[Rfam]
RNA sequence: AGUUUAGGGGGUUAAACUGUACGUUGUAUGUGCAUAUUGCAAAAUUCAUAAGCGUAUAGCUUUUCCCCUUAAAAG
Numbered sequence: 001a002g003u004u005u006a007g008g009g010g011g012u013u014a015a016a017c018u019g020u021a022c023g024u025u026g027u028a029u030g031u032g033c034a035u036a037u038u039g040c041a042a043a044a045u046u047c048a049u050a051a052g053c054g055u056a057u058a059g060c061u062u063u064u065c066c067c068c069u070u071a072a073a074a075g
Base pairs, nucleotide, nucleotide: 003073004072005071006070007069009067010066011065014062017059018058019057020056021055024052025051027050028049029048030047
The family of this 75-nucleotide RNA from Scaptodrosophila lebanonensis is "mir-965 microRNA precursor family". Lineage of the source: Eukaryota > Bilateria > Ecdysozoa > Allotriocarida > Scaptodrosophila. The match comes from Rfam's covariance-model search (72 bits). On this family, see Huang et al., Bioorg Khim 2012: "The regulation of silkworm fibroin L chain production by miRNA-965 and miRNA-1926 in insect cells". Pairs were carried over by alignment from the consensus structure, which was predicted with RNAalifold.